[Rfam]
RNA: MIR2617 microRNA precursor family
Organism: Medicago truncatula
RNA sequence: AUUAUGUGUGACAUGCCCGUUUGGGUUAUUACUCUGAUGCAUGUUUAUUUAUUAAUUAAUUGCUUUUGGGUAACGGGGUGUUACAAUUGG
Numbered sequence: 001a002u003u004a005u006g007u008g009u010g011a012c013a014u015g016c017c018c019g020u021u022u023g024g025g026u027u028a029u030u031a032c033u034c035u036g037a038u039g040c041a042u043g044u045u046u047a048u049u050u051a052u053u054a055a056u057u058a059a060u061u062g063c064u065u066u067u068g069g070g071u072a073a074c075g076g077g078g079u080g081u082u083a084c085a086a087u088u089g090g
Stems, first nucleotide, its partner, number of pairs: 002090003007085008016077006